The record is a 125-nucleotide RNA sequence from Nicotiana attenuata, which matches "U11 spliceosomal RNA" in Rfam. A search with the family's covariance model found it, with a score of 73 bits. Rfam classes the family as a spliceosomal small nuclear RNA.

RNA sequence: AAAAAGGGUCGGUUGGCUAAAUAUGCCACUCUCGCCUGAAUGGUGAGUGCUGUAUGGCUAUCAAGACAUAUGGCCGACAUAAUUUGUGGAAUUUUCAUAGGGUUGGCUCGUUGGCCGACCCUCCA
Dot-bracket structure: .......(((((.((((.......))))(.((((((.....)))))).)(((((((..........))))))))))))....................((((((((..(...).))))))))...